[Rfam]
RNA sequence: GGACGGAUAAGGUGUUUAUGCCGCAUCUGGCAUUCAGUGCAAAUGCCAGAUGCGACGCUGACGCGUCUUAUCUGGCC
Numbered sequence: 001g002g003a004c005g006g007a008u009a010a011g012g013u014g015u016u017u018a019u020g021c022c023g024c025a026u027c028u029g030g031c032a033u034u035c036a037g038u039g040c041a042a043a044u045g046c047c048a049g050a051u052g053c054g055a056c057g058c059u060g061a062c063g064c065g066u067c068u069u070a071u072c073u074g075g076c077c
Stems, first nucleotide, its partner, number of pairs: 002031001004029005011022004045076008054067005
A member of the RNA family "Nucleoid-associated noncoding RNA 4 (CssrE)" from Shigella sonnei, 77 nucleotides long. NCBI's taxonomy places the organism under Bacteria, Pseudomonadota, Gammaproteobacteria, Shigella, Shigella sonnei. Rfam describes the family as follows. In E. coli small RNA transcribed from repeated extragenic palindromic element (REP325) called nucleoid-associated ncRNA 4 (nRNA4) collaborates HU protein in condensing the DNA. The secondary structure but not the sequence of the RNA is important in nucleoid condensation. Its family is annotated with bacterial nucleoid DNA packaging, bacterial nucleoid and protein binding in the Gene Ontology. Rfam classes the family as a small RNA. A reference for the family is Qian et al. (2015), "A New Noncoding RNA Arranges Bacterial Chromosome Organization", MBio.